[Rfam]
RNA sequence: UGCUGCAGCCCUCCUUGGGCGUUUCCUCCCUAGACUUGGGCCGUGCUCUUGAGCACGGCCCCUUUUCUUUUGGCGG
Number, nucleotide and partner (000 for none) at each position: 001u000002g000003c000004u000005g000006c000007a000008g020009c019010c018011c017012u000013c000014c000015u000016u000017g011018g010019g009020c008021g000022u000023u000024u000025c000026c000027u000028c000029c000030c000031u000032a000033g000034a000035c000036u000037u000038g061039g060040g059041c058042c057043g056044u055045g054046c053047u000048c000049u000050u000051g000052a000053g046054c045055a044056c043057g042058g041059c040060c039061c038062c000063u000064u000065u000066u000067c000068u000069u000070u000071u000072g000073g000074c000075g000076g000
RNA: Makes More Granules Regulator RNA (mmgR)
Organism: Chelatococcus reniformis